[Rfam]
RNA sequence: CGUGUUACCCUGACCGGAGCAUUUACUUGUCUUUUUUAAAUUAAGUAAGUGCUAUUGUUGGGGUAGUUUUA
Dot-bracket structure: ...((((((((.((.((((((((.(((((............))))).)))))).)))).))))))))....